RNA sequence: UAUGGCUGGAGCAGGAGUCCGUGCAGAAAACCUGCACCACUUCCUCGAUGCCGGAGUGCUGGAAGUCCAUAGCUCCGCGGGAGCGUGGCAAGCCUCACCGAUGCGUUAUCGUAAUCAAGGAUUGUCCAUGUCAUCAGAUGAACACGCGGACGAGUAUUCGCGUUAUAUCGUAGACGGGGCGGCGGUUGCUGAAAUGAAAGGAAUCAUUGAACGCCAUCAGGCCAAAUGAUUUUUACCGUUGCAUCAUGUCGCCCAAUAUGAUGCUUGCUCGUACCAGGCCCCUGCAAUUUCAACAGGGGCUUUUUUUA
Numbered sequence: 001u002a003u004g005g006c007u008g009g010a011g012c013a014g015g016a017g018u019c020c021g022u023g024c025a026g027a028a029a030a031c032c033u034g035c036a037c038c039a040c041u042u043c044c045u046c047g048a049u050g051c052c053g054g055a056g057u058g059c060u061g062g063a064a065g066u067c068c069a070u071a072g073c074u075c076c077g078c079g080g081g082a083g084c085g086u087g088g089c090a091a092g093c094c095u096c097a098c099c100g101a102u103g104c105g106u107u108a109u110c111g112u113a114a115u116c117a118a119g120g121a122u123u124g125u126c127c128a129u130g131u132c133a134u135c136a137g138a139u140g141a142a143c144a145c146g147c148g149g150a151c152g153a154g155u156a157u158u159c160g161c162g163u164u165a166u167a168u169c170g171u172a173g174a175c176g177g178g179g180c181g182g183c184g185g186u187u188g189c190u191g192a193a194a195u196g197a198a199a200g201g202a203a204u205c206a207u208u209g210a211a212c213g214c215c216a217u218c219a220g221g222c223c224a225a226a227u228g229a230u231u232u233u234u235a236c237c238g239u240u241g242c243a244u245c246a247u248g249u250c251g252c253c254c255a256a257u258a259u260g261a262u263g264c265u266u267g268c269u270c271g272u273a274c275c276a277g278g279c280c281c282c283u284g285c286a287a288u289u290u291c292a293a294c295a296g297g298g299g300c301u302u303u304u305u306u307u308a
Stems, first nucleotide, its partner, number of pairs: 003276003009270007016041003021037006044083003049079003053076005060069003084130005089124003093120003100116003103112003131141004144163007166263007177254008185245001187243003193240004199234010213222003277301008
RNA: MicL sRNA